A member of the RNA family "MIR1888 microRNA precursor family" from Arabidopsis lyrata, 100 nucleotides long.
The family's consensus secondary structure was predicted with RNAalifold.
A search with the family's covariance model found it, with a score of 72 bits.

RNA sequence: CCAAAUCUUAAGGUAAGAUUUGUGAAGAAAAAGCUUAAAUAUAAACCUAAAAGCUCUUAUAUAAGAGCUCUUUCUUCACAAAUCUUAGCUUAAGAUUUGG
Numbered sequence: 001c002c003a004a005a006u007c008u009u010a011a012g013g014u015a016a017g018a019u020u021u022g023u024g025a026a027g028a029a030a031a032a033g034c035u036u037a038a039a040u041a042u043a044a045a046c047c048u049a050a051a052a053g054c055u056c057u058u059a060u061a062u063a064a065g066a067g068c069u070c071u072u073u074c075u076u077c078a079c080a081a082a083u084c085u086u087a088g089c090u091u092a093a094g095a096u097u098u099g100g
Stems, first nucleotide, its partner, number of pairs: 001100009012091002014087017032069005039062006